[Rfam]
RNA sequence: UCAGCGAGACGAAACUGGUUUUCACAGUGAUUUGACAGAUAUAUUUGAUUCUGAGAUCAUUGUGAAAGCUGAUUUUGUUCA
Dot-bracket structure: ........((((((.((((((((((..((((((....................))))))..)))))))))).))))))...
A member of the RNA family "bantam microRNA precursor family" from Tribolium castaneum, 81 nucleotides long. The family's consensus secondary structure was predicted with RNAalifold. Rfam links the family to the GO terms miRNA-mediated post-transcriptional gene silencing and RISC complex. Clan: mir-81 clan. A reference for the family is Marco et al. (2010), "Functional shifts in insect microRNA evolution", Genome Biol Evol.